[Rfam]
RNA: Enterococcus sRNA 1300
Organism: Paenibacillus montaniterrae
RNA sequence: ACAUUCCAUGCGUAUUCGAUAAGCAGGCAAUAAAAAGCGGAUUUUUCCACAGACUGUGGGCUUUUUUGAGCUGCUUAUCUUUACGUAUGUGCAGGGCAUAGAUUUCGAUUGGGAUAGCAUUUCUUAAUGCUACCCUUGUUUCGACGUGUUCUCACUCGUGAUAGAUGCAGAUCCAAGCUCACAAUGUGGGCAUGGAUCUGUAUUUUUUAU
Numbered sequence: 001a002c003a004u005u006c007c008a009u010g011c012g013u014a015u016u017c018g019a020u021a022a023g024c025a026g027g028c029a030a031u032a033a034a035a036a037g038c039g040g041a042u043u044u045u046u047c048c049a050c051a052g053a054c055u056g057u058g059g060g061c062u063u064u065u066u067u068g069a070g071c072u073g074c075u076u077a078u079c080u081u082u083a084c085g086u087a088u089g090u091g092c093a094g095g096g097c098a099u100a101g102a103u104u105u106c107g108a109u110u111g112g113g114a115u116a117g118c119a120u121u122u123c124u125u126a127a128u129g130c131u132a133c134c135c136u137u138g139u140u141u142c143g144a145c146g147u148g149u150u151c152u153c154a155c156u157c158g159u160g161a162u163a164g165a166u167g168c169a170g171a172u173c174c175a176a177g178c179u180c181a182c183a184a185u186g187u188g189g190g191c192a193u194g195g196a197u198c199u200g201u202a203u204u205u206u207u208u209a210u
Stems, first nucleotide, its partner, number of pairs: 006091001007089007018079007027072001029067002032065004037061002044059002047056001092148002095145001097143001101141002104138001111135001113134001115132004121127002165203006172196002175193001177191001179189004
Dot-bracket structure: .....((((((((....(((((((..(.((.((((.((.....((.(........).))))))))))....))))))))...))))))).)((.(.(...((.(......(.(.((((..((...)).)))).))..).)).).).))................((((((.((.(.(.((((...)))).).).)).)))))).......